[Rfam]
RNA sequence: GGAGUCAGCCAGACAAUCGCUGCCUAAUGGGAAACUGUUAGGGGGAGGAAAGUCCGGGCUCCAUAGGGCAGGGUGCCAGGUAACGCCUGGGCGGCGCAAGCCGACGACUAGUGCAACAGAGAGCAAACCGCCGAUGGCCUGCGCAAGCAGGAUCAGGUAAGGGUGAAAGGGUGCGGUAAGAGCGCACCGCGCGGCUGGUAACAGUUCGUGGCACGGUAAACUCCACCCGGAGCAAGGUCAAAUAGGGGUUCAUUGGCGCGGCCCGCGUUGAACCCGGGUAGACUGCUUGAACGCUGAGGCGACUCAGUGGCUAGACGAAUGAUUGUCCACGACAGAACCCGGCUUAUCGGCUGGCUCCCACC
Numbered sequence: 001g002g003a004g005u006c007a008g009c010c011a012g013a014c015a016a017u018c019g020c021u022g023c024c025u026a027a028u029g030g031g032a033a034a035c036u037g038u039u040a041g042g043g044g045g046a047g048g049a050a051a052g053u054c055c056g057g058g059c060u061c062c063a064u065a066g067g068g069c070a071g072g073g074u075g076c077c078a079g080g081u082a083a084c085g086c087c088u089g090g091g092c093g094g095c096g097c098a099a100g101c102c103g104a105c106g107a108c109u110a111g112u113g114c115a116a117c118a119g120a121g122a123g124c125a126a127a128c129c130g131c132c133g134a135u136g137g138c139c140u141g142c143g144c145a146a147g148c149a150g151g152a153u154c155a156g157g158u159a160a161g162g163g164u165g166a167a168a169g170g171g172u173g174c175g176g177u178a179a180g181a182g183c184g185c186a187c188c189g190c191g192c193g194g195c196u197g198g199u200a201a202c203a204g205u206u207c208g209u210g211g212c213a214c215g216g217u218a219a220a221c222u223c224c225a226c227c228c229g230g231a232g233c234a235a236g237g238u239c240a241a242a243u244a245g246g247g248g249u250u251c252a253u254u255g256g257c258g259c260g261g262c263c264c265g266c267g268u269u270g271a272a273c274c275c276g277g278g279u280a281g282a283c284u285g286c287u288u289g290a291a292c293g294c295u296g297a298g299g300c301g302a303c304u305c306a307g308u309g310g311c312u313a314g315a316c317g318a319a320u321g322a323u324u325g326u327c328c329a330c331g332a333c334a335g336a337a338c339c340c341g342g343c344u345u346a347u348c349g350g351c352u353g354g355c356u357c358c359c360a361c362c
Stems, first nucleotide, its partner, number of pairs: 001358010011347001012327007020045002023042006050345003054342005059232004066264004071228005076090005091105001092103004106223002111221002113217002128162002130158003135155003139151002170188006189212001190210005195204003236284004246275006255269005292309007

A member of the RNA family "Bacterial RNase P class A" from Pseudidiomarina planktonica, 362 nucleotides long. Taxonomically the source falls in Pseudidiomarina (Bacteria, Gammaproteobacteria, Alteromonadales, Idiomarinaceae). It is annotated as a ribozyme. It scores 325 bits against the family's covariance model.